[Rfam]
RNA sequence: GUCAGCACCUCGGGGGGCCUGACAACAGGCUGAGAUGCUUCAAAGCGACCCGUUGAACCUGAACCGGUUAAGACCGGCGGAGGGAAGGUGCGAUGUCCGCGG
Numbered sequence: 001g002u003c004a005g006c007a008c009c010u011c012g013g014g015g016g017g018c019c020u021g022a023c024a025a026c027a028g029g030c031u032g033a034g035a036u037g038c039u040u041c042a043a044a045g046c047g048a049c050c051c052g053u054u055g056a057a058c059c060u061g062a063a064c065c066g067g068u069u070a071a072g073a074c075c076g077g078c079g080g081a082g083g084g085a086a087g088g089u090g091c092g093a094u095g096u097c098c099g100c101g102g
Base pairs, nucleotide, nucleotide: 006090007089008088009087010086011052012051013050014049017030018029019028020027021026037046038045039044058083059082060081064077065076066075067074
RNA: TPP riboswitch aptamer (THI element)